[Rfam]
RNA sequence: CCCUGUUACUAAGUACUAGUGCCGCAGGAGUACUAUUGACCUCCUGCUGCUCAAGUGCUUAUCAAUGGGA
Numbered sequence: 001c002c003c004u005g006u007u008a009c010u011a012a013g014u015a016c017u018a019g020u021g022c023c024g025c026a027g028g029a030g031u032a033c034u035a036u037u038g039a040c041c042u043c044c045u046g047c048u049g050c051u052c053a054a055g056u057g058c059u060u061a062u063c064a065a066u067g068g069g070a
Base pairs, nucleotide, nucleotide: 002069003068004067005066006065007064010061011060012059013058014057015056016055017054019052024047025046026045027044028043029042030041
Shown here is a 70-nucleotide RNA sequence from Photinus pyralis, a member of the family "mir-252 microRNA precursor family". NCBI's taxonomy places the organism under Eukaryota, Opisthokonta, Pancrustacea, Neoptera, Photinus. It scores 69 bits against the family's covariance model. The literature on the family includes a 2006 paper in Cell by Ruby et al., "Large-scale sequencing reveals 21U-RNAs and additional microRNAs and endogenous siRNAs in C. elegans". The family's consensus secondary structure was predicted with RNAalifold. The family has 44 seed sequences and 422 matches in Rfam 15.1. Its family is annotated with RISC complex and miRNA-mediated post-transcriptional gene silencing in the Gene Ontology.